[Rfam]
RNA sequence: GGCUCAAAUUUGAAGUAGAGUCGAAUAGUACGAUCACCUGGCCAUACUAAUGUACUCUACUUCAAAUUUACGCCC
Numbered sequence: 001g002g003c004u005c006a007a008a009u010u011u012g013a014a015g016u017a018g019a020g021u022c023g024a025a026u027a028g029u030a031c032g033a034u035c036a037c038c039u040g041g042c043c044a045u046a047c048u049a050a051u052g053u054a055c056u057c058u059a060c061u062u063c064a065a066a067u068u069u070a071c072g073c074c075c
Stems, first nucleotide, its partner, number of pairs: 001074003006069004011064011026049005032043001034041002
RNA: mir-5928 microRNA precursor family